[Rfam]
The record is a 363-nucleotide part of an RNA from Methanococcus voltae, which matches "Archaeal large subunit ribosomal RNA" in Rfam. NCBI's taxonomy places the organism under Archaea, Methanococci, Methanococcaceae, Methanococcus, Methanococcus voltae.

RNA sequence: CGGAAUAAUCUAGUCGAGGGAAGUCGGCAAAAUGGCUCCGUAACUUCGGGAGAAGGAGUGCCAGUGAUCUUUAACCGGAUCGCUGGUCGCAGUGACCAGGGAGGUCCGACUGUUUAAUACAAACAUAGGUCUUAGCGAGCCUGAAAAGGUGUGUACUAAGGCCGACGCCUGCCCAGUGCUGGUACGUGAACCCCGGUUCCAACCGGGCGAAGCGCCAGUAAACGGCGGGGGUAACUAUAACCCUCUUAAGGUAGCGAAAUUCCUUGUCGGGCAAGUUCCGACCUGCAUGAAUGGCGUAACGAGACCUCCACUGUCCCCGACUAGACUCCGGUGAACCUACCAUUCCGGCGCAAAGGCCGGAGA
Numbered sequence: 001c002g003g004a005a006u007a008a009u010c011u012a013g014u015c016g017a018g019g020g021a022a023g024u025c026g027g028c029a030a031a032a033u034g035g036c037u038c039c040g041u042a043a044c045u046u047c048g049g050g051a052g053a054a055g056g057a058g059u060g061c062c063a064g065u066g067a068u069c070u071u072u073a074a075c076c077g078g079a080u081c082g083c084u085g086g087u088c089g090c091a092g093u094g095a096c097c098a099g100g101g102a103g104g105u106c107c108g109a110c111u112g113u114u115u116a117a118u119a120c121a122a123a124c125a126u127a128g129g130u131c132u133u134a135g136c137g138a139g140c141c142u143g144a145a146a147a148g149g150u151g152u153g154u155a156c157u158a159a160g161g162c163c164g165a166c167g168c169c170u171g172c173c174c175a176g177u178g179c180u181g182g183u184a185c186g187u188g189a190a191c192c193c194c195g196g197u198u199c200c201a202a203c204c205g206g207g208c209g210a211a212g213c214g215c216c217a218g219u220a221a222a223c224g225g226c227g228g229g230g231g232u233a234a235c236u237a238u239a240a241c242c243c244u245c246u247u248a249a250g251g252u253a254g255c256g257a258a259a260u261u262c263c264u265u266g267u268c269g270g271g272c273a274a275g276u277u278c279c280g281a282c283c284u285g286c287a288u289g290a291a292u293g294g295c296g297u298a299a300c301g302a303g304a305c306c307u308c309c310a311c312u313g314u315c316c317c318c319g320a321c322u323a324g325a326c327u328c329c330g331g332u333g334a335a336c337c338u339a340c341c342a343u344u345c346c347g348g349c350g351c352a353a354a355g356g357c358c359g360g361a362g363a
Base pairs, nucleotide, nucleotide: 001330002329003328004327009325010324011323012322013321014320015319016318018316019315020314035059036058037057038056039055044049060087061086062085063084064083065082066081067080068079069078070077088092100309101308102307103306104305105304106303107301108300111125112124113123128163129162130161131160132159133158134157135156136153139150140149141148142147166296167295168294169293171226172225173224176223177222178219179218180217181216182215185214186213187212192207193206194205195204196203227245228244229243230242231241232240246250266282267281268280269279270278271277344361345360346359347358348357